Description: Rfam assigns this 101-nucleotide RNA from Paenirhizobium selenitireducens to the family "RcsR1 sRNA". It scores 85 bits against the family's covariance model. RcsR1 (rhizobial cold and salinity stress riboregulator 1) trans-acting sRNA, formerly known as SmelC587, is a stress-related riboregulator, conserved in Sinorhizobium, Rhizobium and Agrobacterium. By type it is a small RNA. The organism belongs to Paenirhizobium selenitireducens, within Bacteria. A reference for the family is Baumgardt et al. (2015), "The stress-related, rhizobial small RNA RcsR1 destabilizes the autoinducer synthase encoding mRNA sinI in Sinorhizobium meliloti", RNA Biol.

RNA sequence: ACAACGGUAACUGGUGGUGGGCACGCUAACGCGGCCUUGACCAGUCAUGUCCAAAGACAAGUGACCCCAAAGCCGCCCGGAUUACCUGAGGCGGCUUUUUU
Number, nucleotide and partner (000 for none) at each position: 001a000002c000003a000004a000005c000006g000007g000008u000009a000010a000011c044012u043013g042014g041015u040016g000017g038018u000019g037020g036021g035022c034023a000024c033025g032026c031027u000028a000029a000030c000031g026032c025033g024034g022035c021036c020037u019038u017039g000040a015041c014042c013043a012044g011045u000046c000047a000048u059049g058050u057051c056052c000053a000054a000055a000056g051057a050058c049059a048060a000061g000062u000063g000064a000065c000066c000067c000068c000069a000070a097071a096072g095073c094074c093075g092076c091077c090078c088079g087080g086081a000082u000083u000084a000085c000086c080087u079088g078089a000090g077091g076092c075093g074094g073095c072096u071097u070098u000099u000100u000101u000